[Rfam]
RNA: Clostridiales-1 RNA
Organism: Firmicutes bacterium AF22-6AC
RNA sequence: UAGAUUAAGCUCACCCAUAGAAAGCAUACGCGACUGCUUGCAGGCAGCGAAGGCUUUCUAUGAGGGGAGCAAACGAACAUGAGCAAGAAGGACGAUAGUCCGAAUUGCGAAUGGGCGUUACGAUUUCGGGAGCUCGAAGAGCGGAGAAAUCGAUUAAGCUA
Numbered sequence: 001u002a003g004a005u006u007a008a009g010c011u012c013a014c015c016c017a018u019a020g021a022a023a024g025c026a027u028a029c030g031c032g033a034c035u036g037c038u039u040g041c042a043g044g045c046a047g048c049g050a051a052g053g054c055u056u057u058c059u060a061u062g063a064g065g066g067g068a069g070c071a072a073a074c075g076a077a078c079a080u081g082a083g084c085a086a087g088a089a090g091g092a093c094g095a096u097a098g099u100c101c102g103a104a105u106u107g108c109g110a111a112u113g114g115g116c117g118u119u120a121c122g123a124u125u126u127c128g129g130g131a132g133c134u135c136g137a138a139g140a141g142c143g144g145a146g147a148a149a150u151c152g153a154u155u156a157a158g159c160u161a
Base pairs, nucleotide, nucleotide: 001161002160003159005157006156007155010069011068012067016062017061018060019059020058021057022056023055024054025053027051029049030048031047032045034043035042036041073118074117075116078113079112080111083108084107085106086105090101091100092099093098121152122151123150124149125148126147127146132142133141134140135139